[Rfam]
RNA sequence: GAAUUUGGCGAUGAUUCGGUUAUUCCCCUACUGGUUUUUUCGUUGAAAUGAUGGCAUAUAUGUAUUAGCUCUACAUAAUUU
Numbered sequence: 001g002a003a004u005u006u007g008g009c010g011a012u013g014a015u016u017c018g019g020u021u022a023u024u025c026c027c028c029u030a031c032u033g034g035u036u037u038u039u040u041c042g043u044u045g046a047a048a049u050g051a052u053g054g055c056a057u058a059u060a061u062g063u064a065u066u067a068g069c070u071c072u073a074c075a076u077a078a079u080u081u
Stems, first nucleotide, its partner, number of pairs: 002080004038058001042055003
The family of this 81-nucleotide sequence from Papaver somniferum is "Small nucleolar RNA Z102/R77". Pairs were carried over by alignment from the consensus structure, which was predicted with PFOLD. Gene Ontology terms of the family: nucleolus and RNA processing. The match comes from Rfam's covariance-model search (44 bits). The family's RNA type in Rfam is C/D-box small nucleolar RNA.